[Rfam]
RNA sequence: GUGCAAAUGAUGGAAUUUUUUUUACUGACUAUCUUGAUGUAUUUAAUGGAACCACUGAUGCAG
Numbered sequence: 001g002u003g004c005a006a007a008u009g010a011u012g013g014a015a016u017u018u019u020u021u022u023u024a025c026u027g028a029c030u031a032u033c034u035u036g037a038u039g040u041a042u043u044u045a046a047u048g049g050a051a052c053c054a055c056u057g058a059u060g061c062a063g
Stems, first nucleotide, its partner, number of pairs: 002062004

The record is a 63-nucleotide RNA sequence from Hymenochirus boettgeri, which matches "Small nucleolar RNA SNORD42" in Rfam. Gene Ontology terms of the family: RNA processing and nucleolus. About the family: snoRNA U42 is found in intron 3 of the ribosomal protein L23a (RPL23a) gene in humans and is also present in mice. Rfam classes the family as a C/D-box small nucleolar RNA. The source organism's lineage runs through Eukaryota, Teleostomi, Sarcopterygii, Amphibia and Hymenochirus. The base pairs follow the family's consensus structure, which was predicted with PFOLD. It scores 44 bits against the family's covariance model.